This 84-nucleotide RNA from Alkaliphilus serpentinus belongs to the Rfam family "c-di-GMP-I riboswitch aptamer". Rfam's curators write: GEMM was predicted in a large-scale screen for bacterial structured RNA regulatory elements. Lineage of the source: Bacteria > Bacillati > Clostridia > Natronincolaceae > Alkaliphilus. Pairs were carried over by alignment from the consensus structure, which is taken from published work.
RNA sequence: UUGUAAUAAAGGCAAAAUCACCGAAAGGUGAUGACGCAAAGCCACGAAUCUAAGUCUUUCAGAUAUGAUAGUCGGGUUGCCAAU
Dot-bracket structure: ...........((...((((((....))))))...))..((((.((((((....(((...)))...)))..)))))))......